[Rfam]
RNA sequence: CGAACCCGCACGGGAGAGUCUCCGGCCUUCGAUUUCCCAGCGAUUUCGAAUAGUCCGGAGCGCCGAAGGAGCAAACCCUCCCCGGAAUCUCUCAGGCAUCCGUACCGUGUGGAAUAG
Numbered sequence: 001c002g003a004a005c006c007c008g009c010a011c012g013g014g015a016g017a018g019u020c021u022c023c024g025g026c027c028u029u030c031g032a033u034u035u036c037c038c039a040g041c042g043a044u045u046u047c048g049a050a051u052a053g054u055c056c057g058g059a060g061c062g063c064c065g066a067a068g069g070a071g072c073a074a075a076c077c078c079u080c081c082c083c084g085g086a087a088u089c090u091c092u093c094a095g096g097c098a099u100c101c102g103u104a105c106c107g108u109g110u111g112g113a114a115u116a117g
Stems, first nucleotide, its partner, number of pairs: 006112008020060006062097003065093002069091003076084001